[Rfam]
The family of this 303-nucleotide RNA sequence from Apophysomyces sp. BC1034 is "Nuclear RNase P". Its Rfam clan is "RNaseP clan". By type it is a ribozyme. It scores 130 bits against the family's covariance model. NCBI's taxonomy places the organism under Eukaryota, Mucoromycota, Mucoromycetes, Mucorales, Apophysomyces.
RNA sequence: AGAGGUGGCAAGCUUAUGUUUACGGGCAAACACACGAAAAUCGUUUAACGGUUUUUUUAACCCGUGGGAAGGUCUGAGAAAAGCCACAAGGUCCUUACGGGACAACUCACGAAAGUGAGUGUAAGCUACCAGUGAAUUUGGUCUCAAGUUUCAUUACAAUCCUUUGACGACGCCUCGGCGUAAGAUGGGUUGGGACUUGGGAUUAUUGAAACGGCUUGCAGGUGGAAAUGCUAUGCAGUGCAAUACAUAAGAACUGGCCCUUUUGGGCUGGGACAACUCGAUUCAGACUACUCUGCCUCCUCU
Number, nucleotide and partner (000 for none) at each position: 001a303002g302003a301004g300005g000006u000007g000008g296009c295010a294011a000012g000013c251014u250015u249016a248017u247018g246019u245020u000021u000022a065023c064024g063025g062026g061027c000028a000029a000030a000031c000032a000033c000034a000035c000036g000037a000038a054039a053040a052041u051042c050043g049044u000045u000046u000047a000048a000049c043050g042051g041052u040053u039054u038055u000056u000057u000058u000059a000060a000061c026062c025063c024064g023065u022066g000067g000068g000069a000070a000071g000072g000073u000074c286075u285076g284077a283078g282079a000080a000081a000082a000083g000084c225085c224086a223087c222088a000089a000090g000091g103092u102093c101094c100095u000096u000097a000098c000099g000100g094101g093102a092103c091104a000105a120106c119107u118108c117109a116110c115111g000112a000113a000114a000115g110116u109117g108118a107119g106120u105121g219122u218123a217124a216125g215126c214127u213128a000129c000130c000131a000132g000133u000134g000135a000136a000137u000138u000139u000140g000141g203142u202143c201144u000145c000146a000147a000148g000149u000150u000151u000152c000153a000154u000155u000156a000157c000158a000159a000160u000161c000162c000163u000164u000165u000166g000167a000168c000169g000170a000171c000172g000173c000174c000175u000176c000177g000178g000179c000180g000181u000182a000183a000184g000185a000186u000187g000188g000189g000190u000191u000192g000193g000194g000195a000196c000197u000198u000199g000200g000201g143202a142203u141204u000205a000206u000207u000208g000209a000210a000211a000212c000213g127214g126215c125216u124217u123218g122219c121220a000221g000222g087223u086224g085225g084226a000227a000228a000229u000230g000231c000232u000233a000234u000235g000236c000237a000238g000239u000240g000241c000242a000243a000244u000245a019246c018247a017248u016249a015250a014251g013252a000253a000254c272255u270256g269257g268258c267259c000260c000261u000262u000263u000264u000265g000266g000267g258268c257269u256270g255271g000272g254273a000274c000275a000276a000277c000278u000279c000280g000281a000282u078283u077284c076285a075286g074287a000288c000289u000290a000291c000292u000293c000294u010295g009296c008297c000298u000299c000300c004301u003302c002303u001